Source information:
The family of this 63-nucleotide RNA sequence from Pedobacter nutrimenti is "Fluoride riboswitch aptamer (crcB RNA motif)". The match comes from Rfam's covariance-model search (48 bits). NCBI's taxonomy places the organism under Bacteria, Bacteroidota, Sphingobacteriia, Sphingobacteriales, Pedobacter.
RNA sequence: UUCGGCUCAGGAAAUGGUGUCUUCCUUUUAAAAACCGCAUUUGCUGAUGGCGCCUACAAUAAC
Numbered sequence: 001u002u003c004g005g006c007u008c009a010g011g012a013a014a015u016g017g018u019g020u021c022u023u024c025c026u027u028u029u030a031a032a033a034a035c036c037g038c039a040u041u042u043g044c045u046g047a048u049g050g051c052g053c054c055u056a057c058a059a060u061a062a063c
Stems, first nucleotide, its partner, number of pairs: 010025004016054006037044002